[Rfam]
RNA sequence: GAGGAGGAUAAGAAGAAGGAGAAGAAGGAGGAGAAGAAGGAGAACGAGUUGCUCCUUCUCCUUCUUCUCCUUCUUCUUCCUCCUUC
Dot-bracket structure: ...(((((...((.(.((((((((((.(.......(((((((((....)).))))))).).)))))))))).).)).)))))....